[Rfam]
A member of the RNA family "Small nucleolar RNA SNORA57" from Mizuhopecten yessoensis, 130 nucleotides long. The match comes from Rfam's covariance-model search (40 bits). The source organism's lineage runs through Eukaryota, Lophotrochozoa, Pectinoidea, Pectinidae and Mizuhopecten. The base pairs follow the family's consensus structure, which was predicted with PFOLD. It is annotated as an H/ACA-box small nucleolar RNA. Rfam's curators write: U99 belongs to the H/ACA class of snoRNAs which are thought to guide the sites of modification of uridines to pseudouridines, the target for this family is unknown.

RNA sequence: CCACUUAUUCUUGACAUAUGUAGUUUGGUAGCUGUCAUAUGAAUGUGAAUGUGGAAAAUAAAAUUGUCAGACGUCUUCGGAGCUGAAGUCUCUUGUUGCUUUAGAUUCUUCCUCAAUGUCUGACACAUCU
Numbered sequence: 001c002c003a004c005u006u007a008u009u010c011u012u013g014a015c016a017u018a019u020g021u022a023g024u025u026u027g028g029u030a031g032c033u034g035u036c037a038u039a040u041g042a043a044u045g046u047g048a049a050u051g052u053g054g055a056a057a058a059u060a061a062a063a064u065u066g067u068c069a070g071a072c073g074u075c076u077u078c079g080g081a082g083c084u085g086a087a088g089u090c091u092c093u094u095g096u097u098g099c100u101u102u103a104g105a106u107u108c109u110u111c112c113u114c115a116a117u118g119u120c121u122g123a124c125a126c127a128u129c130u
Stems, first nucleotide, its partner, number of pairs: 001054004015041006022033004068122005083104007